[Rfam]
RNA sequence: ACUGAGUCACCGCCUAAUCGGCUGUCGGGGCUAAUGUUCCGGCUGUCGAGCCGGGGACCCACAGGUUCGUCUGGGGUGAAUCCGCAACGGUAUAGUCGCCGGCGCGGUAGGGCCGAUCUUCCCGGCCCGAACCCGUCAGCUAACUCGGUCGGCGGGAUGAGCAGGAAGA
Numbered sequence: 001a002c003u004g005a006g007u008c009a010c011c012g013c014c015u016a017a018u019c020g021g022c023u024g025u026c027g028g029g030g031c032u033a034a035u036g037u038u039c040c041g042g043c044u045g046u047c048g049a050g051c052c053g054g055g056g057a058c059c060c061a062c063a064g065g066u067u068c069g070u071c072u073g074g075g076g077u078g079a080a081u082c083c084g085c086a087a088c089g090g091u092a093u094a095g096u097c098g099c100c101g102g103c104g105c106g107g108u109a110g111g112g113c114c115g116a117u118c119u120u121c122c123c124g125g126c127c128c129g130a131a132c133c134c135g136u137c138a139g140c141u142a143a144c145u146c147g148g149u150c151g152g153c154g155g156g157a158u159g160a161g162c163a164g165g166a167a168g169a
Base pairs, nucleotide, nucleotide: 011154012153013152014151018049019048020047021046022045050149051148052147053146054145055144060073061072074134075133076132082107083106084105085104110128111127112126113125

The record is a 169-nucleotide sequence from Nocardia bovistercoris, which matches "c-di-AMP riboswitch aptamer (ydaO/yuaA leader)" in Rfam.
Rfam links the family to the GO terms cyclic-di-AMP binding and regulation of gene expression.
This family represents a conserved RNA structure found upstream of the ydaO and yuaA genes in Bacillus subtilis and related genes in other bacteria. The ydaO/yuaA element is thought to act as a genetic 'off' switch for the ydaO and yuaA genes in its native state. It is believed that the element may be triggered during osmotic shock leading to activation of ydaO, a predicted amino acid transporter gene, and members of the yuaA-yubG operon which code for KtrA and KtrB K+ transporters.